[Rfam]
RNA: radC RNA
Organism: Bordetella ansorpii
RNA sequence: AUUCUCAUCCCUGCAUGGCCGAAGCGUCGGCGACUGCCAGCAGCCACGGUCUUUCAGGCUGCGCCGCGGACUCUCCCGCGUCGACCUCCUUGUCCGCAUCGCACCGUGCCACGGACACGCGCCCGCCCCGGGCGUUGGUGC
Numbered sequence: 001a002u003u004c005u006c007a008u009c010c011c012u013g014c015a016u017g018g019c020c021g022a023a024g025c026g027u028c029g030g031c032g033a034c035u036g037c038c039a040g041c042a043g044c045c046a047c048g049g050u051c052u053u054u055c056a057g058g059c060u061g062c063g064c065c066g067c068g069g070a071c072u073c074u075c076c077c078g079c080g081u082c083g084a085c086c087u088c089c090u091u092g093u094c095c096g097c098a099u100c101g102c103a104c105c106g107u108g109c110c111a112c113g114g115a116c117a118c119g120c121g122c123c124c125g126c127c128c129c130g131g132g133c134g135u136u137g138g139u140g141c
Base pairs, nucleotide, nucleotide: 011036013034018031019030020029021028022027040062041061042060043059044058045057048086049085050084051083063082065080066079067078068077069076112140113139119135120134121133122132123131124130125129